Source information
This 72-nucleotide sequence belongs to the Rfam family "pemK RNA". It is annotated as a cis-regulatory element.
[Rfam]
RNA sequence: AUAAUGAUACUUCCGUAGCCGAUAAAGUAGGCGCGGUCCGCGGAGUACCCGGGGAUGGUGAGAGUCCAAUGA
Numbered sequence: 001a002u003a004a005u006g007a008u009a010c011u012u013c014c015g016u017a018g019c020c021g022a023u024a025a026a027g028u029a030g031g032c033g034c035g036g037u038c039c040g041c042g043g044a045g046u047a048c049c050c051g052g053g054g055a056u057g058g059u060g061a062g063a064g065u066c067c068a069a070u071g072a
Base pairs, nucleotide, nucleotide: 012069013036014035015034016033037055038054039053041051042050043049056068057067058066